[Rfam]
RNA sequence: ACUUUUACAAGAAACGGGGUGUCGGGUGGACAAUGAUUAACUAAUCUAUGGCUUUUAAUCGGAAACGAAUAUUUUUCCGCUUUCACUACCAUAGGAUUAGUCUGUUCAUUUUCCAUUCGCACAUUAUAUAUGUGUGCUUUUUAGGCAUGACUAAUCCUUCUAAACUACUGUUUAGGAGGAUUUUUUG
Numbered sequence: 001a002c003u004u005u006u007a008c009a010a011g012a013a014a015c016g017g018g019g020u021g022u023c024g025g026g027u028g029g030a031c032a033a034u035g036a037u038u039a040a041c042u043a044a045u046c047u048a049u050g051g052c053u054u055u056u057a058a059u060c061g062g063a064a065a066c067g068a069a070u071a072u073u074u075u076u077c078c079g080c081u082u083u084c085a086c087u088a089c090c091a092u093a094g095g096a097u098u099a100g101u102c103u104g105u106u107c108a109u110u111u112u113c114c115a116u117u118c119g120c121a122c123a124u125u126a127u128a129u130a131u132g133u134g135u136g137c138u139u140u141u142u143a144g145g146c147a148u149g150a151c152u153a154a155u156c157c158u159u160c161u162a163a164a165c166u167a168c169u170g171u172u173u174a175g176g177a178g179g180a181u182u183u184u185u186u187g
Base pairs, nucleotide, nucleotide: 016114017113018112019111024107025106026105029102030101031100042099043098044097045096046095047094048092049091050090051089058081060079061078062077063076064075065074122134123133124132153182154181155180156179157178158177159176160175161174162173163172
RNA: Bacillus sRNA ncr1575
Organism: Lysinibacillus sp. BF-4